[Rfam]
Notes:
This 112-nucleotide RNA from Chitinophaga niabensis belongs to the Rfam family "SAM riboswitch aptamer (S box leader)". NCBI's taxonomy places the organism under Bacteria, Bacteroidota, Chitinophagia, Chitinophagaceae, Chitinophaga. The match comes from Rfam's covariance-model search (82 bits). The SAM riboswitch is found upstream of a number of genes which code for proteins involved in methionine or cysteine biosynthesis in Gram-positive bacteria. The SAM riboswitch acts at the level of transcription termination control. The predicted structure consists of a complex stem-loop region followed by a single stem loop terminator region. Gene Ontology term of the family: regulation of gene expression.
RNA sequence: CACUUAUCCAGAAAGGCAGAGGGUACUGGCCCUGCGAAGCCUUAGCAACCAAUUCCGGUUACACGGAAAAAAGGUGCUAAUUCCGGCCCCUAUAUAAGGGGAAAGAUAAGUU
Number, nucleotide and partner (000 for none) at each position: 001c000002a111003c110004u109005u108006a107007u106008c105009c000010a000011g000012a000013a043014a042015g041016g040017c039018a000019g000020a000021g032022g031023g030024u000025a000026c086027u085028g084029g083030c023031c022032c021033u000034g000035c000036g000037a000038a000039g017040c016041c015042u014043u013044a078045g077046c076047a075048a000049c074050c073051a000052a000053u068054u067055c066056c065057g000058g000059u000060u000061a000062c000063a000064c000065g056066g055067a054068a053069a000070a000071a000072a000073g050074g049075u047076g046077c045078u044079a000080a000081u000082u104083c029084c028085g027086g026087c101088c100089c099090c098091u097092a000093u000094a000095u000096a000097a091098g090099g089100g088101g087102a000103a000104a082105g008106a007107u006108a005109a004110g003111u002112u000